[Rfam]
RNA sequence: UGGAAAAAGAACACAGUGAGUAAGGUAGGAGAACAUCUAUUUUUUGAAGUAAAGACAUGAGUGAUGUGAUCUAUACUGAGAAGAAGUUGAUUACAGAAACAAUUGGAGGAUAUUACAUAGAACAGAAAGCAAACUGAAUUUUCAU
Numbered sequence: 001u002g003g004a005a006a007a008a009g010a011a012c013a014c015a016g017u018g019a020g021u022a023a024g025g026u027a028g029g030a031g032a033a034c035a036u037c038u039a040u041u042u043u044u045u046g047a048a049g050u051a052a053a054g055a056c057a058u059g060a061g062u063g064a065u066g067u068g069a070u071c072u073a074u075a076c077u078g079a080g081a082a083g084a085a086g087u088u089g090a091u092u093a094c095a096g097a098a099a100c101a102a103u104u105g106g107a108g109g110a111u112a113u114u115a116c117a118u119a120g121a122a123c124a125g126a127a128a129g130c131a132a133a134c135u136g137a138a139u140u141u142u143c144a145u
Base pairs, nucleotide, nucleotide: 003143004142005141006140073113074112075111077109085104086103087102088101089100
Dot-bracket structure: ..((((..................................................................(((.(.......(((((..........)))))....).)))..........................))))..
A member of the RNA family "Small nucleolar RNA J26" from Oryza barthii, 145 nucleotides long. The source organism's lineage runs through Eukaryota, Magnoliopsida, Liliopsida, Oryzinae and Oryza. Rfam classes the family as a C/D-box small nucleolar RNA. It scores 67 bits against the family's covariance model.